[Rfam]
RNA sequence: CCGAAAAAGCUGCCGUGUGUCUGCCUAUCUACACUUGCUGUGCAGAAUGUCCUCCAACCUGUACAGCAGGCACAGACAGGCAGAGAGACGUCAGCCUGCCA
Numbered sequence: 001c002c003g004a005a006a007a008a009g010c011u012g013c014c015g016u017g018u019g020u021c022u023g024c025c026u027a028u029c030u031a032c033a034c035u036u037g038c039u040g041u042g043c044a045g046a047a048u049g050u051c052c053u054c055c056a057a058c059c060u061g062u063a064c065a066g067c068a069g070g071c072a073c074a075g076a077c078a079g080g081c082a083g084a085g086a087g088a089c090g091u092c093a094g095c096c097u098g099c100c101a
Stems, first nucleotide, its partner, number of pairs: 018086001022082005028076003034070001036068006043061003
RNA: mir-214 microRNA precursor family
Organism: Cyprinodon variegatus